[Rfam]
RNA sequence: GGUCAUAUGGCUCUUCAUUCAGGCAUAAAUCUUCCACCUUUUACUAAAGAUUUCCGUAGAGAGAGGACCAUUAACGAGUUGACCUUAUUUUUGCAGGCUUUGCUAACGCAAAGCU
Numbered sequence: 001g002g003u004c005a006u007a008u009g010g011c012u013c014u015u016c017a018u019u020c021a022g023g024c025a026u027a028a029a030u031c032u033u034c035c036a037c038c039u040u041u042u043a044c045u046a047a048a049g050a051u052u053u054c055c056g057u058a059g060a061g062a063g064a065g066g067a068c069c070a071u072u073a074a075c076g077a078g079u080u081g082a083c084c085u086u087a088u089u090u091u092u093g094c095a096g097g098c099u100u101u102g103c104u105a106a107c108g109c110a111a112a113g114c115u
Stems, first nucleotide, its partner, number of pairs: 003066002011063005017057001027053007095115001097114006